[Rfam]
RNA sequence: GCCCGGGUAGCUCAGUCGGUAGAGCAGUGGCCUGAAAAGCCUCGUGUCGGUGGUUCGAUUCCGCCCCCGGGCA
Dot-bracket structure: (((((((..((((........)))).(.(((.......))).).....(((((.......)))))))))))).

A member of the RNA family "tRNA" from Thiohalorhabdus denitrificans, 73 nucleotides long. About the family: Transfer RNA (tRNA) molecules are approximately 80 nucleotides in length. Lineage of the source: Bacteria > Gammaproteobacteria > Thiohalorhabdales > Thiohalorhabdaceae > Thiohalorhabdus.